The record is a 176-nucleotide RNA from Pararobbsia silviterrae, which matches "Manganese Mn2+ riboswitch aptamer (yybP-ykoY)" in Rfam. A reference for the family is Argaman et al. (2001), "Novel small RNA-encoding genes in the intergenic regions of Escherichia coli", Curr Biol. Pairs were carried over by alignment from the consensus structure. Rfam's curators write: This RNA was originally discovered in E. coli during a large scale screen and was named SraF. The family was later found to exist upstream of related families of protein genes in many bacteria, including the the yybP and ykoK genes in B. subtilis. A search with the family's covariance model found it, with a score of 76 bits.
RNA sequence: CGCUCCGUCAUUGGGGAGUAGUCUUCUUCCUCUCAAGGAAGAGAGCGCGUCAACAUCAUCGGCCGCGGCCGUGGCGCGUUCGACCUUCACGGUUUGGCGAGACCAUUGACGCGCUGUUUCGUUCUGGCCGGACGGAAGCGGUGCGUCAUGGAAAUCGCGUCCGGCCACAGGGGCUC
Number, nucleotide and partner (000 for none) at each position: 001c000002g000003c000004u000005c000006c000007g000008u000009c000010a000011u000012u000013g000014g000015g000016g000017a000018g000019u000020a000021g000022u000023c000024u000025u000026c000027u040028u000029c000030c000031u000032c000033u000034c000035a000036a000037g000038g000039a000040a027041g000042a000043g081044a080045g079046c078047g077048c076049g075050u074051c073052a072053a000054c000055a000056u000057c000058a000059u000060c071061g070062g069063c068064c000065g000066c000067g000068g063069c062070c061071g060072u052073g051074g050075c049076g048077c047078g046079u045080u044081c043082g175083a000084c173085c172086u171087u170088c000089a000090c000091g000092g000093u000094u000095u000096g000097g000098c000099g000100a000101g000102a000103c000104c000105a000106u000107u000108g000109a000110c000111g000112c000113g000114c000115u000116g000117u000118u000119u000120c000121g000122u000123u000124c000125u000126g000127g000128c000129c000130g000131g000132a000133c000134g000135g000136a000137a000138g000139c000140g000141g000142u000143g000144c000145g000146u000147c000148a000149u000150g000151g000152a000153a000154a000155u000156c000157g000158c000159g000160u000161c000162c000163g000164g000165c000166c000167a000168c000169a000170g087171g086172g085173g084174c000175u082176c000